RNA sequence: GCUCUUGGCUGCUCAGUAGUCGGUGUAGGAUCUGUCCGACAGUCUCGCUAACAGCUACAUCUGAUUACUGGGUCACCAAAGGCUGAC
Numbered sequence: 001g002c003u004c005u006u007g008g009c010u011g012c013u014c015a016g017u018a019g020u021c022g023g024u025g026u027a028g029g030a031u032c033u034g035u036c037c038g039a040c041a042g043u044c045u046c047g048c049u050a051a052c053a054g055c056u057a058c059a060u061c062u063g064a065u066u067a068c069u070g071g072g073u074c075a076c077c078a079a080a081g082g083c084u085g086a087c
Base pairs, nucleotide, nucleotide: 013071014070015069016068017067018066020064021063022062023060024059025058026057027056028055032054033053034052035051
A member of the RNA family "mir-221 microRNA precursor family" from Podargus strigoides, 87 nucleotides long.
The base pairs follow the family's consensus structure, which was predicted with RNAalifold.
For this family Rfam cites "MicroRNA profile of Marek's disease virus-transformed T-cell line MSB-1: predominance of virus-encoded microRNAs" (Yao et al., J Virol, 2008).